[Rfam]
The family of this 102-nucleotide RNA from Microcebus murinus is "Y RNA". It is annotated as a non-coding RNA gene. Rfam describes the family as follows. Y RNAs are components of the Ro ribonucleoprotein particle (Ro RNP), in association with Ro60 and La proteins. The Y RNAs and Ro60 and La proteins are well conserved, but the function of the Ro RNP is not known. In humans the RNA component can be one of four small RNAs -- hY1, hY3, hY4 and hY5. Lineage of the source: Eukaryota > Euteleostomi > Sarcopterygii > Strepsirrhini > Microcebus.
RNA sequence: GGCUGGGCCAGGUGCAGUGCUAUUCACAAUUAAUUGAUCACAACCAAUUACAGAUUCCUCCUUUCCUUCUCCACUCCCACUGCCUCACUUGACCAACCUUAA
Numbered sequence: 001g002g003c004u005g006g007g008c009c010a011g012g013u014g015c016a017g018u019g020c021u022a023u024u025c026a027c028a029a030u031u032a033a034u035u036g037a038u039c040a041c042a043a044c045c046a047a048u049u050a051c052a053g054a055u056u057c058c059u060c061c062u063u064u065c066c067u068u069c070u071c072c073a074c075u076c077c078c079a080c081u082g083c084c085u086c087a088c089u090u091g092a093c094c095a096a097c098c099u100u101a102a
Base pairs, nucleotide, nucleotide: 001098002097004095005094006093008091010090011089014086016081017080018079019078032064033063036060037059